[Rfam]
RNA sequence: AGAAUACGGUGAAGCCCUCUCCUCCUCCCUGGGCUUCGCGGUAAAGGCGGCCUCCCCCUCCUCCUCCCUGGGGAAGCCGCCGACUUAUACGGCGGGACCGACCUCCUCCCUGGUCCCGCGGUGCAG
Numbered sequence: 001a002g003a004a005u006a007c008g009g010u011g012a013a014g015c016c017c018u019c020u021c022c023u024c025c026u027c028c029c030u031g032g033g034c035u036u037c038g039c040g041g042u043a044a045a046g047g048c049g050g051c052c053u054c055c056c057c058c059u060c061c062u063c064c065u066c067c068c069u070g071g072g073g074a075a076g077c078c079g080c081c082g083a084c085u086u087a088u089a090c091g092g093c094g095g096g097a098c099c100g101a102c103c104u105c106c107u108c109c110c111u112g113g114u115c116c117c118g119c120g121g122u123g124c125a126g
Stems, first nucleotide, its partner, number of pairs: 007041001009039001011037007046081006053075001055073002090121001092119009
Dot-bracket structure: ......(.(.(((((((.............))))))).).)....((((((.(.((...............)).)))))))........(.(((((((((..........))))))))).).....
RNA: Alphaproteobacterial ar14
Organism: Paracoccus halophilus